[Rfam]
RNA sequence: GCGCUCCUCGAUUUUGUCCCGUCCGUGUCGCCGCAAGGCGAGGCCGGCGGGGACGAAGCGGAAGCAAAAGCGCCGCGCUGGAUAAAGCACGACCGAGGCCAGUCUGAGUCCCCGC
Numbered sequence: 001g002c003g004c005u006c007c008u009c010g011a012u013u014u015u016g017u018c019c020c021g022u023c024c025g026u027g028u029c030g031c032c033g034c035a036a037g038g039c040g041a042g043g044c045c046g047g048c049g050g051g052g053a054c055g056a057a058g059c060g061g062a063a064g065c066a067a068a069a070g071c072g073c074c075g076c077g078c079u080g081g082a083u084a085a086a087g088c089a090c091g092a093c094c095g096a097g098g099c100c101a102g103u104c105u106g107a108g109u110c111c112c113c114g115c
Stems, first nucleotide, its partner, number of pairs: 006098005021093002024091004028041005047115008058076004077103005
A member of the RNA family "EGFOA RNA", 115 nucleotides long. It is one of the family's seed sequences.